[Rfam]
A member of the RNA family "mir-458 microRNA precursor family" from Cynoglossus semilaevis, 78 nucleotides long.
RNA sequence: GUGCAGAUUGCAGCGCCAUUUUCAGAGCUAUAAGUGUGAAAGUAGCCAUAGCUCUUUAAAUGGUACUGCUGUAUGUGG
Numbered sequence: 001g002u003g004c005a006g007a008u009u010g011c012a013g014c015g016c017c018a019u020u021u022u023c024a025g026a027g028c029u030a031u032a033a034g035u036g037u038g039a040a041a042g043u044a045g046c047c048a049u050a051g052c053u054c055u056u057u058a059a060a061u062g063g064u065a066c067u068g069c070u071g072u073a074u075g076u077g078g
Stems, first nucleotide, its partner, number of pairs: 002077003007072002011068003015064007024055008
Pairs were carried over by alignment from the consensus structure, which was predicted with RNAalifold. Gene Ontology terms of the family: miRNA-mediated post-transcriptional gene silencing and RISC complex. A reference for the family is Glazov et al. (2008), "A microRNA catalog of the developing chicken embryo identified by a deep sequencing approach", Genome Res. It scores 81 bits against the family's covariance model. NCBI's taxonomy places the organism under Eukaryota, Metazoa, Euteleosteomorpha, Percomorphaceae, Cynoglossus.